A member of the RNA family "Mammalian CPEB3 ribozyme" from Alligator sinensis, 77 nucleotides long. Its family is annotated with RNA nuclease activity in the Gene Ontology. About the family: The mammalian CPEB3 ribozyme is a self cleaving RNA located in the second intron of the CPEB3 gene which belongs to a family of genes regulating messenger RNA polyadenylation. This ribozyme is highly conserved and found only in mammals. The CPEB3 ribozyme is structurally and biochemically related to the human hepatitis delta virus (HDV) ribozyme and the HDV ribozyme is proposed to have arisen from the human transcriptome. The family's consensus secondary structure is taken from published work. The match comes from Rfam's covariance-model search (45 bits).

RNA sequence: ACUGCUUUCAUGCAGGCCAUAGCAGAAGUGCUCAUGGCACAUCCCUGUCAGAUUCCAACAAAUCUGUAAAUUCUGCU
Numbered sequence: 001a002c003u004g005c006u007u008u009c010a011u012g013c014a015g016g017c018c019a020u021a022g023c024a025g026a027a028g029u030g031c032u033c034a035u036g037g038c039a040c041a042u043c044c045c046u047g048u049c050a051g052a053u054u055c056c057a058a059c060a061a062a063u064c065u066g067u068a069a070a071u072u073c074u075g076c077u
Base pairs, nucleotide, nucleotide: 015044016043021077022076023075024074025073026072027071028040029039030038049066050065051064052063053062054061